Rfam assigns this 95-nucleotide RNA from Vibrio parahaemolyticus to the family "Qrr RNA". A reference for the family is Lenz et al. (2004), "The Small RNA Chaperone Hfq and Multiple Small RNAs Control Quorum Sensing in Vibrio harveyi and Vibrio cholerae", Cell. The base pairs follow the family's consensus structure, which is taken from published work. Rfam describes the family as follows. This family represents a set of small RNAs (the Qrr RNAs) that are thought to be involved in the regulation of quorum sensing in Vibrio species.
RNA sequence: CGACCCCUCGGGUCACCUAGCCAACUGACGUUGUUAGUGAACGAUAUGUUCACAAAACAAGCCAAUAGACCCGACUGCCUAUUGGCUUCUUUUUU
Dot-bracket structure: .(((((...)))))................((((..(((((((...)))))))...)))).(((((((..........)))))))..........